[Rfam]
RNA sequence: UCCGUCAAGCAGGGGUGGUCAAAAUGGCCUGAGAUGAUACCCUUUGAACCUGACCUGGAUAACACCGGCAUAGGGAACUGGAGCAAGCUAUUC
Numbered sequence: 001u002c003c004g005u006c007a008a009g010c011a012g013g014g015g016u017g018g019u020c021a022a023a024a025u026g027g028c029c030u031g032a033g034a035u036g037a038u039a040c041c042c043u044u045u046g047a048a049c050c051u052g053a054c055c056u057g058g059a060u061a062a063c064a065c066c067g068g069c070a071u072a073g074g075g076a077a078c079u080g081g082a083g084c085a086a087g088c089u090a091u092u093c
Stems, first nucleotide, its partner, number of pairs: 006081001008079002011043004016037001017029005049074004055068004
The record is a 93-nucleotide sequence from Desulfosarcina widdelii, which matches "TPP riboswitch aptamer (THI element)" in Rfam. The organism belongs to Desulfosarcina, within Bacteria. Rfam links the family to the GO term thiamine pyrophosphate binding. It scores 62 bits against the family's covariance model.